[Rfam]
RNA sequence: UAAGCCGGCGAGAACUAUUUGAAUCAAGUAUUGGAGUGAUUCAAAUGGUUCUCACAAACGU
Numbered sequence: 001u002a003a004g005c006c007g008g009c010g011a012g013a014a015c016u017a018u019u020u021g022a023a024u025c026a027a028g029u030a031u032u033g034g035a036g037u038g039a040u041u042c043a044a045a046u047g048g049u050u051c052u053c054a055c056a057a058a059c060g061u
Stems, first nucleotide, its partner, number of pairs: 008055001010053017
Dot-bracket structure: .......(.(((((((((((((((((..........))))))))))))))))).)......
Description: The family of this 61-nucleotide RNA sequence from Penthorum chinense is "Plastid-ccsA-ndhD-1 3UTR RNA". Plastid-ccsA-ndhD-1 is a non-coding RNA (ncRNA) recognised in plastids. It was found in the three prime untranslated region (3UTR) of ccsA and ndhD genes, its 3UTR location suggests a role in transcript maturation. Its Rfam clan is "Plastid-ccsA_ndhD 3UTR RNA clan". Rfam 15.1 lists 1,322 matches to the family in 557 species.